[Rfam]
RNA sequence: AAAUUCCCUAUAGUCGGAAAAGGUUAAGUGUAAGAAGUCAGCCGAAGUCAUAUUAGUAGGUGUUUCACACAUCUAUGAAGGAC
Numbered sequence: 001a002a003a004u005u006c007c008c009u010a011u012a013g014u015c016g017g018a019a020a021a022g023g024u025u026a027a028g029u030g031u032a033a034g035a036a037g038u039c040a041g042c043c044g045a046a047g048u049c050a051u052a053u054u055a056g057u058a059g060g061u062g063u064u065u066c067a068c069a070c071a072u073c074u075a076u077g078a079a080g081g082a083c
Stems, first nucleotide, its partner, number of pairs: 001025002004020002007017002010014001038045002047083003056076006
This 83-nucleotide RNA from Haloplasma contractile belongs to the Rfam family "Group II catalytic intron D1-D4-1".
Lineage of the source: Bacteria > Bacillati > Haloplasmataceae > Haloplasma > Haloplasma contractile.